Shown here is a 72-nucleotide RNA from Flavobacterium sp. 316, a member of the family "DUF805 RNA". The family has 46 seed sequences and 281 matches in Rfam 15.1. Clan: DUF805 clan.
RNA sequence: CCAACGUGGAGUUCAGAAACCACAUUAAUAAACGAGGCGAAAACCUGAAAAGCCUUAUGAGUAAGGAAACAA
Dot-bracket structure: .....((((..........))))............(((.....[.......)))..........].......